[Rfam]
RNA: Nucleoid-associated noncoding RNA 4 (CssrE)
RNA sequence: GGCCGGAUAAGGCACUCGUGCCGCAUCCGGCAUUUGAGCAGGAUGCCUGAUGCGACGCUGUCGCGUCUUAUCAGGCC
Numbered sequence: 001g002g003c004c005g006g007a008u009a010a011g012g013c014a015c016u017c018g019u020g021c022c023g024c025a026u027c028c029g030g031c032a033u034u035u036g037a038g039c040a041g042g043a044u045g046c047c048u049g050a051u052g053c054g055a056c057g058c059u060g061u062c063g064c065g066u067c068u069u070a071u072c073a074g075g076c077c
Stems, first nucleotide, its partner, number of pairs: 002031007011022004045076008054067005